[Rfam]
RNA sequence: CCGACGGGCCGUGACUGGCGCGUUCGGAUGGGGAACCAUCGUGGAGCGGCCCCGUCGACCGACGACCUGCCGUGCGCCUGGGCCUCUGCA
Numbered sequence: 001c002c003g004a005c006g007g008g009c010c011g012u013g014a015c016u017g018g019c020g021c022g023u024u025c026g027g028a029u030g031g032g033g034a035a036c037c038a039u040c041g042u043g044g045a046g047c048g049g050c051c052c053c054g055u056c057g058a059c060c061g062a063c064g065a066c067c068u069g070c071c072g073u074g075c076g077c078c079u080g081g082g083c084c085u086c087u088g089c090a
Stems, first nucleotide, its partner, number of pairs: 003055001006052007015043001017078005028039004069083003
Dot-bracket structure: ..(..(((((((..(.[[[[[......((((....))))...)..)))))))..).............(((..]]]]]..))).......
The family of this 90-nucleotide RNA from Paractinoplanes rishiriensis is "ZMP/ZTP riboswitch aptamer (pfl RNA motif)". The source organism's lineage runs through Bacteria, Actinomycetota, Actinomycetes, Micromonosporaceae and Paractinoplanes.